[Rfam]
RNA sequence: AACAUGCUUCCUUAGAUCCACCUUUGUGGAUGCCAAUCUUGAACUGAGUUCUACUUGUAAACUUUACUGUUUCUUGUAGUUCCAGUCAAGAAACAUCCAGCAACUUUUUGGUUGUACAGUCGAAGGUGCUUGAGUCAUUGGCAUGUGAGAUAAAUAAUACCUGCAUGUUAGUCGUCUUAGGUUAUACAAAUGGCAUGCCAUUGUGCUGCCAUUUUUGUACUAUCAGGACUUGACUGGUGUGCGGACACU
Numbered sequence: 001a002a003c004a005u006g007c008u009u010c011c012u013u014a015g016a017u018c019c020a021c022c023u024u025u026g027u028g029g030a031u032g033c034c035a036a037u038c039u040u041g042a043a044c045u046g047a048g049u050u051c052u053a054c055u056u057g058u059a060a061a062c063u064u065u066a067c068u069g070u071u072u073c074u075u076g077u078a079g080u081u082c083c084a085g086u087c088a089a090g091a092a093a094c095a096u097c098c099a100g101c102a103a104c105u106u107u108u109u110g111g112u113u114g115u116a117c118a119g120u121c122g123a124a125g126g127u128g129c130u131u132g133a134g135u136c137a138u139u140g141g142c143a144u145g146u147g148a149g150a151u152a153a154a155u156a157a158u159a160c161c162u163g164c165a166u167g168u169u170a171g172u173c174g175u176c177u178u179a180g181g182u183u184a185u186a187c188a189a190a191u192g193g194c195a196u197g198c199c200a201u202u203g204u205g206c207u208g209c210c211a212u213u214u215u216u217g218u219a220c221u222a223u224c225a226g227g228a229c230u231u232g233a234c235u236g237g238u239g240u241g242c243g244g245a246c247a248c249u
Base pairs, nucleotide, nucleotide: 002146003145004144005143006142007141008140011134012133013132014131015130019128020127021126022125023124024123025122026121027099028098029097030096031095032094037091038090039089040088043086044085045084046083048082051079052078053077054076057073059072060071061070062069100115101114102113103112104111105110161244162243163242164241165240168237170235171234172233173232182225184223185222186221191219192218193216195214197209198208
The family of this 249-nucleotide sequence from Myotis brandtii is "Small nucleolar RNA SNORA53". About the family: The snoRNA ACA53 belongs to the H/ACA family of pseudouridylation guide snoRNAs. The base pairs follow the family's consensus structure, which was predicted with RNAalifold. Rfam classes the family as an H/ACA-box small nucleolar RNA.